[Rfam]
RNA: mir-8834 microRNA precursor family
Organism: Canis lupus
RNA sequence: AGGAGGAACAACCACGGUGGCAGAGGCAGCUCUGCAGCCCUGGAGUCAGCCCCCACAGUAACUACGGAGCUCUCCGUCUGCAGGGCCUGGAGGCUCUGGGGCGGG
Numbered sequence: 001a002g003g004a005g006g007a008a009c010a011a012c013c014a015c016g017g018u019g020g021c022a023g024a025g026g027c028a029g030c031u032c033u034g035c036a037g038c039c040c041u042g043g044a045g046u047c048a049g050c051c052c053c054c055a056c057a058g059u060a061a062c063u064a065c066g067g068a069g070c071u072c073u074c075c076g077u078c079u080g081c082a083g084g085g086c087c088u089g090g091a092g093g094c095u096c097u098g099g100g101g102c103g104g105g
Stems, first nucleotide, its partner, number of pairs: 002097004009089002012085002019078003023074003028071007036063001040058003